The family of this 149-nucleotide RNA sequence from Pseudideonella sakaiensis is "Group II catalytic intron D1-D4-7". Rfam's curators write: Group II introns are found in rRNA, tRNA and mRNA of organelles in fungi, plants and protists, and also in mRNA in bacteria. It scores 102 bits against the family's covariance model. Pairs were carried over by alignment from the consensus structure.
RNA sequence: CCUGGCGUUCAGCCGCCAGUAGCCUAGGUGCAGUGCGAGACCGGCAACGGUCUCGUGCCGAGCGCACUGACAACGUAGCCACCCUUCGCGGGUACGCGGUGCCCGUGAGGGUCGCCGUGUGAUUCUGGGAGUCGAAUCCGGAUGAGGCG
Numbered sequence: 001c002c003u004g005g006c007g008u009u010c011a012g013c014c015g016c017c018a019g020u021a022g023c024c025u026a027g028g029u030g031c032a033g034u035g036c037g038a039g040a041c042c043g044g045c046a047a048c049g050g051u052c053u054c055g056u057g058c059c060g061a062g063c064g065c066a067c068u069g070a071c072a073a074c075g076u077a078g079c080c081a082c083c084c085u086u087c088g089c090g091g092g093u094a095c096g097c098g099g100u101g102c103c104c105g106u107g108a109g110g111g112u113c114g115c116c117g118u119g120u121g122a123u124u125c126u127g128g129g130a131g132u133c134g135a136a137u138c139c140g141g142a143u144g145a146g147g148c149g
Stems, first nucleotide, its partner, number of pairs: 002019006027068005033058011081093004094120004103110002124142006
Dot-bracket structure: .((((((......)))))).......(((((.(((((((((((....))))))))))).....)))))............((((.....))))((((.....((....))......))))...((((((.......)))))).......